[Rfam]
RNA: c-di-GMP-II-GAG riboswitch aptamer
RNA sequence: CUCAAUACGGGAGGCUGAGAUCCGCCGGAGGCGCAGCUACGGCCACCUGACCCGGCGGGGGAGCCACCGGUGAGACCGGCCCGCGAG
Dot-bracket structure: .....(.((((.(((......(((((((..(.........[[.[[[[...))))))))....)))...]]]]...]]..)))).)..